This 99-nucleotide sequence from Paenibacillus pectinilyticus belongs to the Rfam family "TPP riboswitch aptamer (THI element)". The match comes from Rfam's covariance-model search (72 bits). Lineage of the source: Bacteria > Bacillati > Bacilli > Paenibacillaceae > Paenibacillus.
RNA sequence: AUGAAUCCCUAGGGGCGCCGUGAGGCUGAGACAGUGUAAUCUGAACCCUUUGAACCUGAUCUGGUUUAUGCCAGCGGAGGAAAGUGGAACGAGCUUUGG
Number, nucleotide and partner (000 for none) at each position: 001a000002u000003g000004a000005a000006u087007c086008c000009c084010u083011a049012g048013g047014g046015g000016c043017g026018c025019c024020g000021u000022g000023a000024g019025g018026c017027u000028g000029a000030g000031a000032c000033a042034g041035u000036g000037u000038a000039a000040u000041c034042u033043g016044a000045a000046c014047c013048c012049u011050u000051u000052g000053a000054a000055c080056c079057u078058g000059a000060u000061c074062u073063g072064g071065u000066u000067u000068a000069u000070g000071c064072c063073a062074g061075c000076g000077g000078a057079g056080g055081a000082a000083a010084g009085u000086g007087g006088a000089a000090c000091g000092a000093g000094c000095u000096u000097u000098g000099g000
Vitamin B(1) in its active form thiamin pyrophosphate (TPP) is an essential coenzyme that is synthesised by coupling of pyrimidine and thiazole moieties in bacteria.